RNA sequence: GACAAAUAAUGUCAAUUAGACGGCAUUAGCCCUCAGUGCAAAGAUGACCUUCAUCUAUCAGGCCUGGCUGAUGGCU
Numbered sequence: 001g002a003c004a005a006a007u008a009a010u011g012u013c014a015a016u017u018a019g020a021c022g023g024c025a026u027u028a029g030c031c032c033u034c035a036g037u038g039c040a041a042a043g044a045u046g047a048c049c050u051u052c053a054u055c056u057a058u059c060a061g062g063c064c065u066g067g068c069u070g071a072u073g074g075c076u
Stems, first nucleotide, its partner, number of pairs: 001075001003073002029039002032036001
This 76-nucleotide RNA from Pluvianellus socialis belongs to the Rfam family "Small nucleolar RNA SNORD83". Rfam classes the family as a C/D-box small nucleolar RNA. Rfam 15.1 lists 1,393 matches to the family in 644 species. The source organism's lineage runs through Eukaryota, Metazoa, Sauropsida, Saurischia and Pluvianellus. The literature on the family includes a 2000 paper in Nucleic Acids Res by Jady and Kiss, "Characterisation of the U83 and U84 small nucleolar RNAs: two novel 2'-O-ribose methylation guide RNAs that lack complementarities to ribosomal RNAs".